[Rfam]
RNA sequence: CCGUUCAACUCGUUCCUCCAGCGAGGGGAACUACGGGAG
Number, nucleotide and partner (000 for none) at each position: 001c036002c035003g034004u033005u000006c000007a000008a000009c000010u000011c000012g031013u030014u029015c028016c027017u026018c025019c000020a000021g000022c000023g000024a000025g018026g017027g016028g015029a014030a013031c012032u000033a004034c003035g002036g001037g000038a000039g000
A member of the RNA family "THF-II riboswitch (folE RNA)" from Mesorhizobium sp. Root554, 39 nucleotides long.
Rfam classes the family as a cis-regulatory element.
It scores 61 bits against the family's covariance model.
The source organism's lineage runs through Bacteria, Pseudomonadati, Pseudomonadota, Hyphomicrobiales and Mesorhizobium.
For this family Rfam cites "Structural insights into translation regulation by the THF-II riboswitch" (Xu et al., Nucleic Acids Res, 2023).
Pairs were carried over by alignment from the consensus structure, which is taken from published work.